Rfam assigns this 89-nucleotide RNA from Solanum tuberosum to the family "MIR8024 microRNA precursor family". Rfam links the family to the GO terms RISC complex and miRNA-mediated post-transcriptional gene silencing. It scores 69 bits against the family's covariance model.
RNA sequence: UUGGAAGAUUUGAAGACUUCAACUUGUAUACUUGGAGGAUUUGAAGACUUCAACUUGUAUACUUAGCUGAAUUUAAAGAAACUUCAAGC
Number, nucleotide and partner (000 for none) at each position: 001u087002u086003g085004g084005a083006a000007g000008a000009u077010u076011u075012g074013a073014a072015g000016a000017c069018u000019u066020c000021a064022a000023c000024u000025u059026g058027u057028a056029u000030a000031c000032u053033u052034g051035g050036a049037g048038g000039a000040u000041u000042u000043g000044a000045a000046g000047a000048c037049u036050u035051c034052a033053a032054c000055u000056u028057g027058u026059a025060u000061a000062c000063u000064u021065a000066g019067c000068u000069g017070a000071a000072u014073u013074u012075a011076a010077a009078g000079a000080a000081a000082c000083u005084u004085c003086a002087a001088g000089c000